Background:
Shown here is a 71-nucleotide sequence from Phrynocephalus forsythii, a member of the family "Small nucleolar RNA SNORD93". The literature on the family includes a 2002 paper in Mol Cell Biol by Galardi et al., "Purified box C/D snoRNPs are able to reproduce site-specific 2'-O-methylation of target RNA in vitro". Pairs were carried over by alignment from the consensus structure, which was predicted with RNAalifold.
RNA sequence: UGGCCAAGGAUGAAAACUAUGUACUGAGUGCUGUGAACAAAUCUGAUGUGUUAAAGGAUUUUCUGAGGCCA
Numbered sequence: 001u002g003g004c005c006a007a008g009g010a011u012g013a014a015a016a017c018u019a020u021g022u023a024c025u026g027a028g029u030g031c032u033g034u035g036a037a038c039a040a041a042u043c044u045g046a047u048g049u050g051u052u053a054a055a056g057g058a059u060u061u062u063c064u065g066a067g068g069c070c071a
Base pairs, nucleotide, nucleotide: 002070003069004068005067